[Rfam]
RNA sequence: UUGAAUGUUAAGCAAACUCAUUGAAAAAUGAGGACGCAAAACCGUGGGUCUAAGACAAAAAUGUUAUGGCGGCCAGGUUGCAAAU
Dot-bracket structure: ...........((...((((((....))))))...))..((((.((((((....(((....)))...)))..)))))))......
Numbered sequence: 001u002u003g004a005a006u007g008u009u010a011a012g013c014a015a016a017c018u019c020a021u022u023g024a025a026a027a028a029u030g031a032g033g034a035c036g037c038a039a040a041a042c043c044g045u046g047g048g049u050c051u052a053a054g055a056c057a058a059a060a061a062u063g064u065u066a067u068g069g070c071g072g073c074c075a076g077g078u079u080g081c082a083a084a085u
Stems, first nucleotide, its partner, number of pairs: 012037002017032006040079004045075003048070003055064003

The family of this 85-nucleotide RNA from Sporomusa ovata is "c-di-GMP-I riboswitch aptamer".
The match comes from Rfam's covariance-model search (72 bits).
Taxonomically the source falls in Sporomusa (Bacteria, Bacillati, Selenomonadales, Sporomusaceae).